[Rfam]
RNA sequence: CUCCCCGAAAUGCAUUUAGGUGCAGCGUCGUGUGUUUCUUGCCGGAGGUAGAGCACUGGAUAGGCGAUGGGCCCUACCGGGUUACUGACCUUAGCCAAACUCCGAAUGCCGGUAAGUGAGAGCACGGCAGUGAGACUGUGGGGGAUAAGCUCCAUGGUCGAGAGGGAAACAGCCCAGAGCAUCGACUAAGGCCCCUAAGCGUACGCUAAGUGGGAAAGGAUGUGGAGUCGCAGAGACAACCAGGAGGUUGGCUUAGAAGCAGCCACCCUUGAAAGAGUGCGUAAUAGCUCACUGGUCUAGUGAUUCCGCGCCGACAAUGUAGCGGGGCUCAAGCGUACCGCCGAAGUCGUGUCAUUCAUACAAUAGGGCCAACGCCUGUAUGGAUGGGUAGGGGAGCGUCGUGUGCCGGGUGAAGCAGCCGCGGAAGCGAGUUGUGGACGGUUCACGAGUGAGAAU
Numbered sequence: 001c002u003c004c005c006c007g008a009a010a011u012g013c014a015u016u017u018a019g020g021u022g023c024a025g026c027g028u029c030g031u032g033u034g035u036u037u038c039u040u041g042c043c044g045g046a047g048g049u050a051g052a053g054c055a056c057u058g059g060a061u062a063g064g065c066g067a068u069g070g071g072c073c074c075u076a077c078c079g080g081g082u083u084a085c086u087g088a089c090c091u092u093a094g095c096c097a098a099a100c101u102c103c104g105a106a107u108g109c110c111g112g113u114a115a116g117u118g119a120g121a122g123c124a125c126g127g128c129a130g131u132g133a134g135a136c137u138g139u140g141g142g143g144g145a146u147a148a149g150c151u152c153c154a155u156g157g158u159c160g161a162g163a164g165g166g167a168a169a170c171a172g173c174c175c176a177g178a179g180c181a182u183c184g185a186c187u188a189a190g191g192c193c194c195c196u197a198a199g200c201g202u203a204c205g206c207u208a209a210g211u212g213g214g215a216a217a218g219g220a221u222g223u224g225g226a227g228u229c230g231c232a233g234a235g236a237c238a239a240c241c242a243g244g245a246g247g248u249u250g251g252c253u254u255a256g257a258a259g260c261a262g263c264c265a266c267c268c269u270u271g272a273a274a275g276a277g278u279g280c281g282u283a284a285u286a287g288c289u290c291a292c293u294g295g296u297c298u299a300g301u302g303a304u305u306c307c308g309c310g311c312c313g314a315c316a317a318u319g320u321a322g323c324g325g326g327g328c329u330c331a332a333g334c335g336u337a338c339c340g341c342c343g344a345a346g347u348c349g350u351g352u353c354a355u356u357c358a359u360a361c362a363a364u365a366g367g368g369c370c371a372a373c374g375c376c377u378g379u380a381u382g383g384a385u386g387g388g389u390a391g392g393g394g395a396g397c398g399u400c401g402u403g404u405g406c407c408g409g410g411u412g413a414a415g416c417a418g419c420c421g422c423g424g425a426a427g428c429g430a431g432u433u434g435u436g437g438a439c440g441g442u443u444c445a446c447g448a449g450u451g452a453g454a455a456u
Stems, first nucleotide, its partner, number of pairs: 001396006011024005026130001027128007036121001038116008051103001052101002057097003061093004069085001070083005134159010164175003179352004184348003190342003199339001201338006218312002222309010239296005245269003250264003270274001275290001279288002353386010397451001399448005405442004415435005420429003
Background
A member of the RNA family "Bacterial large subunit ribosomal RNA" from Streptomyces seoulensis, 456 nucleotides of a longer RNA. The match comes from Rfam's covariance-model search (2765 bits).